The record is a 145-nucleotide RNA sequence from Dorcoceras hygrometricum, which matches "Small nucleolar RNA F1/F2/snoR5a" in Rfam.
RNA sequence: UUUUGCCCAUGGUAUCUAAUGUCCAGCAUUUCAACUUGUUGCUGGGCAUUUCGUUUCAGGGCAUAAAUUAAUGGGAGAACAGGUCUUUGCGACAUAGUUAGCUUAUACUUUUAAGCUUUCUGUUACUAUAAUCCUGCUUACAUGU
Numbered sequence: 001u002u003u004u005g006c007c008c009a010u011g012g013u014a015u016c017u018a019a020u021g022u023c024c025a026g027c028a029u030u031u032c033a034a035c036u037u038g039u040u041g042c043u044g045g046g047c048a049u050u051u052c053g054u055u056u057c058a059g060g061g062c063a064u065a066a067a068u069u070a071a072u073g074g075g076a077g078a079a080c081a082g083g084u085c086u087u088u089g090c091g092a093c094a095u096a097g098u099u100a101g102c103u104u105a106u107a108c109u110u111u112u113a114a115g116c117u118u119u120c121u122g123u124u125a126c127u128a129u130a131a132u133c134c135u136g137c138u139u140a141c142a143u144g145u
Base pairs, nucleotide, nucleotide: 004063005062006061007060008059018050019049020048021047022046023045024044025043026042027041028040078138080136081135082134094123095122096121097120100117101116102115103114
Dot-bracket structure: ...(((((.........(((((((((((...........)))))))))))........)))))..............(.(((...........((((..((((..........))))..))))..........))).).......
Background: The match comes from Rfam's covariance-model search (67 bits). From the family's description: This family contains F1, F2 and snoR5a sequences, all of which are members of the the H/ACA class of snoRNA that guide the sites of modification of uridines to pseudouridines.